[Rfam]
RNA sequence: UAUUUUUAUUACCCUGCGUAUUAUCCUAAAAUAAGACCUUAUUUAACUCAGGUCUAUUUAUGUUUUAGGAAUAUGCUCAUCAGUAAUUUUCAGCGGAGAUCACGGACAAGGGGAUUUAUCCGAUAAAAAAAUGCCGGCUAUUACGCCGGCAUUUUCAGAUUAA
Numbered sequence: 001u002a003u004u005u006u007u008a009u010u011a012c013c014c015u016g017c018g019u020a021u022u023a024u025c026c027u028a029a030a031a032u033a034a035g036a037c038c039u040u041a042u043u044u045a046a047c048u049c050a051g052g053u054c055u056a057u058u059u060a061u062g063u064u065u066u067a068g069g070a071a072u073a074u075g076c077u078c079a080u081c082a083g084u085a086a087u088u089u090u091c092a093g094c095g096g097a098g099a100u101c102a103c104g105g106a107c108a109a110g111g112g113g114a115u116u117u118a119u120c121c122g123a124u125a126a127a128a129a130a131a132u133g134c135c136g137g138c139u140a141u142u143a144c145g146c147c148g149g150c151a152u153u154u155u156c157a158g159a160u161u162a163a
Base pairs, nucleotide, nucleotide: 015106017104018103019102024070025069026068028066029065030064031063032062033061041058043056046053047052112121113120131152132151133150134149135148136147137146138145
The family of this 163-nucleotide RNA sequence from Enterobacteriaceae bacterium strain FGI 57 is "Enterobacterial sRNA STnc430". Rfam classes the family as a small RNA.